[Rfam]
RNA sequence: UUAUAUUACCUAGCGCCAUACUGGUCGAUACCAGUUAACGAGGACGAAGUUUUCGAAUUUUAGGCGGGUGCUUCGCGGUGUUCUACCAUCGUCAGGAUUUCAACAAAACCCAGAGUGAUCUAGGCACAAAGUGAAAUUCACGUAGCAGA
Dot-bracket structure: ...................((((((....)))))).........(((((...((.(....).))......)))))(((((......)))))...(((((((.......((.(((....))).))........)))))))..........
This 149-nucleotide RNA from Peptostreptococcus sp. D1 belongs to the Rfam family "glmS glucosamine-6-phosphate activated ribozyme aptamer".
Lineage of the source: Bacteria > Bacillota > Clostridia > Peptostreptococcaceae > Peptostreptococcus.